[Rfam]
This 65-nucleotide RNA sequence from Pleuronectes platessa belongs to the Rfam family "Small nucleolar RNA SNORD66".
snoRNA HBII-142 is part of the C/D family of snoRNAs. It is the human orthologue of the mouse MBII-142 snoRNA and is predicted to guide 2'O-ribose methylation of small 18S rRNA at residue C1272.
A reference for the family is Huttenhofer et al. (2001), "RNomics: an experimental approach that identifies 201 candidates for novel, small, non-messenger RNAs in mouse", EMBO J.
Its family is annotated with RNA processing and nucleolus in the Gene Ontology.
Pairs were carried over by alignment from the consensus structure, which was predicted with RNAalifold.
RNA sequence: CUCCAACGAUGACUUCUGUGUCUGGGCCACUGAAUGUUCUUGAUGGUAUUGAGGAACUGCAGGAG
Numbered sequence: 001c002u003c004c005a006a007c008g009a010u011g012a013c014u015u016c017u018g019u020g021u022c023u024g025g026g027c028c029a030c031u032g033a034a035u036g037u038u039c040u041u042g043a044u045g046g047u048a049u050u051g052a053g054g055a056a057c058u059g060c061a062g063g064a065g
Stems, first nucleotide, its partner, number of pairs: 001065004
By type it is a C/D-box small nucleolar RNA.
It scores 57 bits against the family's covariance model.
The source organism's lineage runs through Eukaryota, Chordata, Eurypterygia, Ctenosquamata and Pleuronectes.